[Rfam]
RNA sequence: CUCACAGAGGCUCUUAACCUGAGAUUCAGACAGCUGCUUGUACUCAUUUAGCUGCUUGAUCCACUGGUCCAGCUCCUUGGUGAA
Numbered sequence: 001c002u003c004a005c006a007g008a009g010g011c012u013c014u015u016a017a018c019c020u021g022a023g024a025u026u027c028a029g030a031c032a033g034c035u036g037c038u039u040g041u042a043c044u045c046a047u048u049u050a051g052c053u054g055c056u057u058g059a060u061c062c063a064c065u066g067g068u069c070c071a072g073c074u075c076c077u078u079g080g081u082g083a084a
Base pairs, nucleotide, nucleotide: 002083003082004081005080007078008077009076010075013072014071017068018067019066021064023061024060026059027058028057029056031054032053033052034051035050036049040047041046
The record is an 84-nucleotide RNA from Heterocephalus glaber, which matches "mir-3661 microRNA precursor family" in Rfam. Rfam 15.1 lists 172 matches to the family in 122 species. The source organism's lineage runs through Eukaryota, Boreoeutheria, Rodentia, Hystricomorpha and Heterocephalus. The family's consensus secondary structure was predicted with RNAalifold. Rfam links the family to the GO terms RISC complex and miRNA-mediated post-transcriptional gene silencing.